Background:
This 304-nucleotide sequence from Jejuibacter calystegiae belongs to the Rfam family "ryfA RNA". The literature on the family includes a 2001 paper in Genes Dev by Wassarman et al., "Identification of novel small RNAs using comparative genomics and microarrays". This family consists of a number of bacterial RNA genes of 305 bases in length. The ryfA RNA gene is present in E. coli, Shigella flexneri and Salmonella species where it is found between the ydaN and dbpA genes.
RNA sequence: UCGGGCCUUUUCACCGUCUUAAGCAAGCGGGCGCCGGACCUGGAAAAGGAUGUCCAAUGGCCGUAUACGCAAGCACACCCAAGGUGCUUGCACUCACGGCGAUAUUUCCGGCGGUGACGUCGUGAAGCGGUCUAUAGUCAGGACCGCACAAUGAAACGGUACUUUUGUAUUGUCAUCGUUGUUUCUGGUGCACUGCUGUCAUCCGGAAAUGGGGGAUGGAAUAUCUCCCAUAACGCAUUUUCAGUGACGAUUGUCGUACCAGGCAGGUAAGCCCGGUAGCCGCCCCGUAAGGGGCGGUUUCCUU
Numbered sequence: 001u002c003g004g005g006c007c008u009u010u011u012c013a014c015c016g017u018c019u020u021a022a023g024c025a026a027g028c029g030g031g032c033g034c035c036g037g038a039c040c041u042g043g044a045a046a047a048g049g050a051u052g053u054c055c056a057a058u059g060g061c062c063g064u065a066u067a068c069g070c071a072a073g074c075a076c077a078c079c080c081a082a083g084g085u086g087c088u089u090g091c092a093c094u095c096a097c098g099g100c101g102a103u104a105u106u107u108c109c110g111g112c113g114g115u116g117a118c119g120u121c122g123u124g125a126a127g128c129g130g131u132c133u134a135u136a137g138u139c140a141g142g143a144c145c146g147c148a149c150a151a152u153g154a155a156a157c158g159g160u161a162c163u164u165u166u167g168u169a170u171u172g173u174c175a176u177c178g179u180u181g182u183u184u185c186u187g188g189u190g191c192a193c194u195g196c197u198g199u200c201a202u203c204c205g206g207a208a209a210u211g212g213g214g215g216a217u218g219g220a221a222u223a224u225c226u227c228c229c230a231u232a233a234c235g236c237a238u239u240u241u242c243a244g245u246g247a248c249g250a251u252u253g254u255c256g257u258a259c260c261a262g263g264c265a266g267g268u269a270a271g272c273c274c275g276g277u278a279g280c281c282g283c284c285c286c287g288u289a290a291g292g293g294g295c296g297g298u299u300u301c302c303u304u
Base pairs, nucleotide, nucleotide: 007048008047009046010045011044012043014030015029016028017027032037060189061188062187070090071089072088073087074086075085076084094125095124096123097122098121099120100119101118103116104115105114106113127147128146129145130144131143132142133141148182149181150180151179152178153177154176156173157172158171159170160169161168162167190268191267193266194265195264196263197262212228213227214226215225216224217223218222244255275303276302278299279298280297281296282295283294284293285292
The source organism's lineage runs through Bacteria, Pseudomonadota, Gammaproteobacteria, Enterobacteriaceae and Jejuibacter.